Description
The family of this 44-nucleotide RNA sequence from Ligilactobacillus hayakitensis is "PreQ1 (pre queuosine) riboswitch aptamer". Rfam links the family to the GO term queuosine biosynthetic process.

[Rfam]
RNA sequence: AUGAUACUGGUUCGAAAAAUCCCAGUUAAAAAAACUAGAAAGAG
Numbered sequence: 001a002u003g004a005u006a007c008u009g010g011u012u013c014g015a016a017a018a019a020u021c022c023c024a025g026u027u028a029a030a031a032a033a034a035c036u037a038g039a040a041a042g043a044g
Stems, first nucleotide, its partner, number of pairs: 006026005016036001
This family is a bacterial riboswitch that binds to the metabolite preQ1, an intermediate in the biosynthesis of the modified nucleoside queuosine from GTP. One example of this riboswitch is located in the leader of the Bacillus subtilis ykvJKLM (queCDEF) operon which encodes four genes necessary for queuosine production. The match comes from Rfam's covariance-model search (45 bits). The pairing is the family consensus, mapped onto this sequence.